The record is a 62-nucleotide RNA sequence, which matches "GP20-b RNA" in Rfam. It is annotated as a cis-regulatory element.

[Rfam]
RNA sequence: AGUCUACCUGCGGACUUAACAAGGCAGGGGCAACAAGUCAGAGCGACGACUUAAAACGCUUA
Number, nucleotide and partner (000 for none) at each position: 001a016002g015003u014004c013005u000006a000007c000008c027009u026010g025011c024012g000013g004014a003015c002016u001017u000018a000019a000020c000021a000022a000023g000024g011025c010026a009027g008028g000029g000030g000031c000032a000033a000034c000035a000036a051037g050038u049039c048040a000041g000042a000043g000044c000045g000046a000047c000048g039049a038050c037051u036052u000053a000054a000055a000056a000057c000058g000059c000060u000061u000062a000